[Rfam]
RNA sequence: GGAAGUGCCAAGGUCACUGGUGGGCCUCCCGGACUUCAAAUCCGGUGUGGGGCGCUAAAACCGUCCCAGGUGGGUUCGAUUCCCAUGCACUUCC
Numbered sequence: 001g002g003a004a005g006u007g008c009c010a011a012g013g014u015c016a017c018u019g020g021u022g023g024g025c026c027u028c029c030c031g032g033a034c035u036u037c038a039a040a041u042c043c044g045g046u047g048u049g050g051g052g053c054g055c056u057a058a059a060a061c062c063g064u065c066c067c068a069g070g071u072g073g074g075u076u077c078g079a080u081u082c083c084c085a086u087g088c089a090c091u092u093c094c
Stems, first nucleotide, its partner, number of pairs: 001094008012027002015024001017022001029045005048068005071085004